[Rfam]
RNA sequence: UCCCGCUGCCCUUCUUGGGCGUUUCCUCCCUAGACUUCGGGCCGCUCUUCGGAGCGGCCUUUUUUCUGUCGCGC
Numbered sequence: 001u002c003c004c005g006c007u008g009c010c011c012u013u014c015u016u017g018g019g020c021g022u023u024u025c026c027u028c029c030c031u032a033g034a035c036u037u038c039g040g041g042c043c044g045c046u047c048u049u050c051g052g053a054g055c056g057g058c059c060u061u062u063u064u065u066c067u068g069u070c071g072c073g074c
Base pairs, nucleotide, nucleotide: 008020009019010018011017040059041058042057043056044055045054046053047052
The record is a 74-nucleotide sequence from Methylobacterium sp. Leaf99, which matches "Makes More Granules Regulator RNA (mmgR)" in Rfam. It scores 72 bits against the family's covariance model. From the family's description: SuhB later renamed mmgR (makes more granules regulator) was a putative non-coding RNA found multiple times in the Agrobacterium tumefaciens genome and related alpha-proteobacteria. Other non-coding RNAs uncovered in the same analysis include: speF, ybhL, metA, and serC.Several studies inSinorhizobium meliloti showed that suhB element is indeed a non-coding RNA:firstly it was detected on Northern blot and called Sm8RNA, secondly in an RNAseq study referred to as SmelC689.The mutant phenotype's (strain lacking the small RNA) cytoplasm contains higher content of polyhydroxybutyrate (PBH)storage granules than wild type strain.